[Rfam]
RNA sequence: UCAUCAUCACCAUCAUCCUGACUAGUCUUUCAGGCUGCUGUGUGCUGGAAGACAUUUAACCCGUCUUCCGGUGGUAUGAAUACAAAGAAAAACCCUCGGAAGAUCUUCCGGGGGUUUUUUAUU
Numbered sequence: 001u002c003a004u005c006a007u008c009a010c011c012a013u014c015a016u017c018c019u020g021a022c023u024a025g026u027c028u029u030u031c032a033g034g035c036u037g038c039u040g041u042g043u044g045c046u047g048g049a050a051g052a053c054a055u056u057u058a059a060c061c062c063g064u065c066u067u068c069c070g071g072u073g074g075u076a077u078g079a080a081u082a083c084a085a086a087g088a089a090a091a092a093c094c095c096u097c098g099g100a101a102g103a104u105c106u107u108c109c110g111g112g113g114g115u116u117u118u119u120u121a122u123u
Stems, first nucleotide, its partner, number of pairs: 008044003011040002014037001017034005045071008087120015
RNA: Histidine operon leader